[Rfam]
RNA sequence: GGCCGGGUAGCGUGCAGUUAUACAAGACCUUCGGGGAAAGCUGCAGACCGUUCAUUGGCGGCGAUCAACUGCCCGGCCGCCCUCUC
Numbered sequence: 001g002g003c004c005g006g007g008u009a010g011c012g013u014g015c016a017g018u019u020a021u022a023c024a025a026g027a028c029c030u031u032c033g034g035g036g037a038a039a040g041c042u043g044c045a046g047a048c049c050g051u052u053c054a055u056u057g058g059c060g061g062c063g064a065u066c067a068a069c070u071g072c073c074c075g076g077c078c079g080c081c082c083u084c085u086c
Stems, first nucleotide, its partner, number of pairs: 001078009013045004018040002028035002048061004
RNA: sRNA-Xcc1